[Rfam]
RNA sequence: GUAUGUUGAUGGUGUUCAGUACCAAGGACGUGUGUUUACCUGUAUGUUGAUGAUGUUCAGUACCAAGGACAAACAUGUUCACCU
Numbered sequence: 001g002u003a004u005g006u007u008g009a010u011g012g013u014g015u016u017c018a019g020u021a022c023c024a025a026g027g028a029c030g031u032g033u034g035u036u037u038a039c040c041u042g043u044a045u046g047u048u049g050a051u052g053a054u055g056u057u058c059a060g061u062a063c064c065a066a067g068g069a070c071a072a073a074c075a076u077g078u079u080c081a082c083c084u
Base pairs, nucleotide, nucleotide: 001070002069010065011064012063013062014061015060016059018057019056020055021054023052024051026045028043029042030041032039033038
mir-2060 microRNA precursor family: an 84-nucleotide RNA sequence from Branchiostoma belcheri. NCBI's taxonomy places the organism under Eukaryota, Metazoa, Eumetazoa, Branchiostomatidae, Branchiostoma. Pairs were carried over by alignment from the consensus structure, which was predicted with RNAalifold.